A member of the RNA family "mir-1388 microRNA precursor family" from Sus scrofa, 93 nucleotides long.
The family's consensus secondary structure was predicted with RNAalifold.
NCBI's taxonomy places the organism under Eukaryota, Metazoa, Chordata, Artiodactyla, Sus.
A search with the family's covariance model found it, with a score of 85 bits.
The family has 12 seed sequences and 600 matches in Rfam 15.1.
[Rfam]
RNA sequence: CCCUGGGCAGUGCCUCCAGGACUGUCAAACCUGAGAAUGGUGAGCGUCCAGGGACAAUCUCAGGUGUGUCAGCCCGAGAGGUGCCGUCCUUUG
Numbered sequence: 001c002c003c004u005g006g007g008c009a010g011u012g013c014c015u016c017c018a019g020g021a022c023u024g025u026c027a028a029a030c031c032u033g034a035g036a037a038u039g040g041u042g043a044g045c046g047u048c049c050a051g052g053g054a055c056a057a058u059c060u061c062a063g064g065u066g067u068g069u070c071a072g073c074c075c076g077a078g079a080g081g082u083g084c085c086g087u088c089c090u091u092u093g
Stems, first nucleotide, its partner, number of pairs: 005090003008086001010084007019075002022072003026068001029065008038056002
Dot-bracket structure: ....((((.(((((((..((.(((.(..((((((((.((...............)).))))))))..).))).))..))))))).).)))...